RNA sequence: CCGUGUUAGUCGGGGAGCAAGUGAUUGCUGAGACUGCGAAAGCAGGACCCGUAGAACCUGAUCCAGUUAGCACUGGCGGAGGGAACUGACACGUUCAGCAC
Numbered sequence: 001c002c003g004u005g006u007u008a009g010u011c012g013g014g015g016a017g018c019a020a021g022u023g024a025u026u027g028c029u030g031a032g033a034c035u036g037c038g039a040a041a042g043c044a045g046g047a048c049c050c051g052u053a054g055a056a057c058c059u060g061a062u063c064c065a066g067u068u069a070g071c072a073c074u075g076g077c078g079g080a081g082g083g084a085a086c087u088g089a090c091a092c093g094u095u096c097a098g099c100a101c
Base pairs, nucleotide, nucleotide: 006089007088008087009086010085011051012050013049014048017028018027019026020025035044036043037042057082058081059080063076064075065074066073
The record is a 101-nucleotide sequence from Salinivibrio sp. KP-1, which matches "TPP riboswitch aptamer (THI element)" in Rfam.
NCBI's taxonomy places the organism under Bacteria, Pseudomonadati, Vibrionales, Vibrionaceae, Salinivibrio.
The family's consensus secondary structure is taken from published work.
The match comes from Rfam's covariance-model search (68 bits).